[Rfam]
RNA sequence: ACACCCCUAUGGAGCAGGACUUACUUUAGUGGGGCUUUGGUGCUCACUGAGCCUGCCCCUUGAGUGUGUUGCU
Numbered sequence: 001a002c003a004c005c006c007c008u009a010u011g012g013a014g015c016a017g018g019a020c021u022u023a024c025u026u027u028a029g030u031g032g033g034g035c036u037u038u039g040g041u042g043c044u045c046a047c048u049g050a051g052c053c054u055g056c057c058c059c060u061u062g063a064g065u066g067u068g069u070u071g072c073u
Stems, first nucleotide, its partner, number of pairs: 001069004006064001008062002011059002014056003018053001020051001026050008034041002